[Rfam]
RNA sequence: GAUUUAUAAAGAAGCGGCGAGAGAUCAGGCUCACUGACCCGCUGGCAACCCUUCAGUUUUGAAGAAGGUGCCAAUUCCUGUCCCGGCAAAUAACACCGGGGGAUAUAAAUU
Numbered sequence: 001g002a003u004u005u006a007u008a009a010a011g012a013a014g015c016g017g018c019g020a021g022a023g024a025u026c027a028g029g030c031u032c033a034c035u036g037a038c039c040c041g042c043u044g045g046c047a048a049c050c051c052u053u054c055a056g057u058u059u060u061g062a063a064g065a066a067g068g069u070g071c072c073a074a075u076u077c078c079u080g081u082c083c084c085g086g087c088a089a090a091u092a093a094c095a096c097c098g099g100g101g102g103a104u105a106u107a108a109a110u111u
Stems, first nucleotide, its partner, number of pairs: 001111008013043005021032003026080004044072004049068002051064004076103001082100005
Dot-bracket structure: ((((((((....(((((...(((..[[[[)))......)))))((((.((((((......))))..))))))...(]]]].(((((.........)))))..)))))))))
RNA: SAM riboswitch aptamer (S box leader)
Organism: Mucilaginibacter sp.